[Rfam]
RNA sequence: GCGAUGAGCUAAUUUACGUAAGACGAGAGAUAUGCUUAAGUGCUAAACACGCGAAUGUGGUCGCCUGGUCUCUCGCCGUAAACGCAUCAAGACGCCUGCUUGCAGGCGUC
Numbered sequence: 001g002c003g004a005u006g007a008g009c010u011a012a013u014u015u016a017c018g019u020a021a022g023a024c025g026a027g028a029g030a031u032a033u034g035c036u037u038a039a040g041u042g043c044u045a046a047a048c049a050c051g052c053g054a055a056u057g058u059g060g061u062c063g064c065c066u067g068g069u070c071u072c073u074c075g076c077c078g079u080a081a082a083c084g085c086a087u088c089a090a091g092a093c094g095c096c097u098g099c100u101u102g103c104a105g106g107c108g109u110c
Base pairs, nucleotide, nucleotide: 014081015080016079017078018077024075025074026073027072028071029070030069031068034043035042048067049066051064052063053062091110092109093108094107095106096105097104098103
Shown here is a 110-nucleotide sequence from Bacillus thuringiensis, a member of the family "BsrF".
The base pairs follow the family's consensus structure, which was predicted with WAR.
For this family Rfam cites "Novel small RNA-encoding genes in the intergenic regions of Bacillus subtilis" (Saito et al., Gene, 2008).